[Rfam]
RNA sequence: UGAUGCCAGGGUAAAAAGGUCAUGCGUUUCGUGCUUGCACGAAAAAGCAUGAAUUUGGGACCCGCAAAACAUGAGAAAGUAGCCCGAUUAGGGCGGAUUUCGAAUGUUUUUAGGAUUAUGCCAGCACGAAGUGCGGAAUAAUCCGUAGGUAUCA
Numbered sequence: 001u002g003a004u005g006c007c008a009g010g011g012u013a014a015a016a017a018g019g020u021c022a023u024g025c026g027u028u029u030c031g032u033g034c035u036u037g038c039a040c041g042a043a044a045a046a047g048c049a050u051g052a053a054u055u056u057g058g059g060a061c062c063c064g065c066a067a068a069a070c071a072u073g074a075g076a077a078a079g080u081a082g083c084c085c086g087a088u089u090a091g092g093g094c095g096g097a098u099u100u101c102g103a104a105u106g107u108u109u110u111u112a113g114g115a116u117u118a119u120g121c122c123a124g125c126a127c128g129a130a131g132u133g134c135g136g137a138a139u140a141a142u143c144c145g146u147a148g149g150u151a152u153c154a
Base pairs, nucleotide, nucleotide: 001154002153003152004151005150006149007148010062011061012060016056017055018054020052021051022050023049024048025047027045028044029042030041031040032039033038066110067109068108069107070106071105072104075101076100077099078098082094083093084092085091113144114143115142116141117140118139119138124134125133126132127131

The record is a 154-nucleotide RNA sequence from Hespellia stercorisuis, which matches "Clostridiales-1 RNA" in Rfam.
The match comes from Rfam's covariance-model search (121 bits).
The family's RNA type in Rfam is small RNA.